[Rfam]
RNA: CRISPR RNA direct repeat element
RNA sequence: GUAGCGCCCGGCCAUACUGCCGGGCGAGGAUUGAAAC
Numbered sequence: 001g002u003a004g005c006g007c008c009c010g011g012c013c014a015u016a017c018u019g020c021c022g023g024g025c026g027a028g029g030a031u032u033g034a035a036a037c
Base pairs, nucleotide, nucleotide: 005026006025007024008023009022010021011020012019